Source information: The record is an 84-nucleotide RNA from Chanos chanos, which matches "mir-19 microRNA precursor family" in Rfam. Gene Ontology terms of the family: RISC complex and miRNA-mediated post-transcriptional gene silencing.

RNA sequence: AUUUACAGCAAGUUUUGCAGGUUUGCUUCCAGCUUUCAGUUUUUUUUCUGUGCUGUGCAAAUCCAUGCAAAACUCGCCGUGAUG
Numbered sequence: 001a002u003u004u005a006c007a008g009c010a011a012g013u014u015u016u017g018c019a020g021g022u023u024u025g026c027u028u029c030c031a032g033c034u035u036u037c038a039g040u041u042u043u044u045u046u047u048c049u050g051u052g053c054u055g056u057g058c059a060a061a062u063c064c065a066u067g068c069a070a071a072a073c074u075c076g077c078c079g080u081g082a083u084g
Base pairs, nucleotide, nucleotide: 003082004081005080006079008077009076011074012073013072014071015070016069017068018067019066020064021063022061023060024059025058026057028055031054032053033052

A reference for the family is Lagos-Quintana et al. (2001), "Identification of novel genes coding for small expressed RNAs", Science. NCBI's taxonomy places the organism under Eukaryota, Gnathostomata, Neopterygii, Gonorynchiformes, Chanos.